[Rfam]
A member of the RNA family "small nucleolar RNA snR33" from Schizosaccharomyces pombe, 145 nucleotides long.
The source organism's lineage runs through Eukaryota, Opisthokonta, Dikarya, Taphrinomycotina and Schizosaccharomyces.
Clan: SNORA9 clan.
Rfam classes the family as an H/ACA-box small nucleolar RNA.
The literature on the family includes a 2005 paper in J Biol Chem by Li et al., "Identification and functional analysis of 20 Box H/ACA small nucleolar RNAs (snoRNAs) from Schizosaccharomyces pombe".

RNA sequence: CUGCAACUGCAAAUGGAAUAUUUGAAAACUUAUUCUAAUAUUCCUAUAUUGCUACUUCAUCAUGAAGUUGUUGCUAUAAAAAUUACUCUAGUUUGAGGGAGGGAACCCAAAUCGUGGUUUCUUCCUAUAGAAUGAGUGUACAAUU
Dot-bracket structure: ..(((((.((((..((((((((..............))))))))....)))).................))))).........(((((........(((((((((((........))))))))))).......))))).......